[Rfam]
RNA sequence: CCGCUGCAAGCGGGAGAGAGCCAGCGUGCUGGCCGCCGAAGGAGCAACCGCCCCGGAAUCUCUCAGGCACCGAGGACCGCUUGCGGUGC
Numbered sequence: 001c002c003g004c005u006g007c008a009a010g011c012g013g014g015a016g017a018g019a020g021c022c023a024g025c026g027u028g029c030u031g032g033c034c035g036c037c038g039a040a041g042g043a044g045c046a047a048c049c050g051c052c053c054c055g056g057a058a059u060c061u062c063u064c065a066g067g068c069a070c071c072g073a074g075g076a077c078c079g080c081u082u083g084c085g086g087u088g089c
Stems, first nucleotide, its partner, number of pairs: 006084008020033004035068003038064002042062003048056002